[Rfam]
RNA sequence: CGUCCGCGAUCUGGGGGCAGAUGAAGUGGACGUGGGCGUCGAUGGCGCCGGCCGUCAGGAUGCGGCCGUUGCCCGCGAUGACCUCGGUCUCCGGGCCGAUCACCAGGUCCGGGUGCACCCCGUCCAUGGUGUCGGGGUUGCCUGCCUUGCCGAUGCCCGUGAUCCGGCCGUCGCGGAUGCCGACGUCGGCCUUGACGAUGCCCCAGUGAUCGACGAUGACGACGCCGGUGAUGACGGUGUCCGGGGUGCCGUCCGCGCGCGUGGCGCGCGACUGGCCCAUGGAUUCGCGGAUG
Numbered sequence: 001c002g003u004c005c006g007c008g009a010u011c012u013g014g015g016g017g018c019a020g021a022u023g024a025a026g027u028g029g030a031c032g033u034g035g036g037c038g039u040c041g042a043u044g045g046c047g048c049c050g051g052c053c054g055u056c057a058g059g060a061u062g063c064g065g066c067c068g069u070u071g072c073c074c075g076c077g078a079u080g081a082c083c084u085c086g087g088u089c090u091c092c093g094g095g096c097c098g099a100u101c102a103c104c105a106g107g108u109c110c111g112g113g114u115g116c117a118c119c120c121c122g123u124c125c126a127u128g129g130u131g132u133c134g135g136g137g138u139u140g141c142c143u144g145c146c147u148u149g150c151c152g153a154u155g156c157c158c159g160u161g162a163u164c165c166g167g168c169c170g171u172c173g174c175g176g177a178u179g180c181c182g183a184c185g186u187c188g189g190c191c192u193u194g195a196c197g198a199u200g201c202c203c204c205a206g207u208g209a210u211c212g213a214c215g216a217u218g219a220c221g222a223c224g225c226c227g228g229u230g231a232u233g234a235c236g237g238u239g240u241c242c243g244g245g246g247u248g249c250c251g252u253c254c255g256c257g258c259g260c261g262u263g264g265c266g267c268g269c270g271a272c273u274g275g276c277c278c279a280u281g282g283a284u285u286c287g288c289g290g291a292u293g
Base pairs, nucleotide, nucleotide: 001293002292003291005289006288007287008286009285012161013158014157015156016073017072018071019069027050028049029048031047032046036043054066055065056064075150078147080145087141088140091137092136094133095132096131101128102127106125107124109122111120112119167276168275169274170273174270175269178266179265180264181263189223191221193219203212226261227260228258233253234252237249238248239247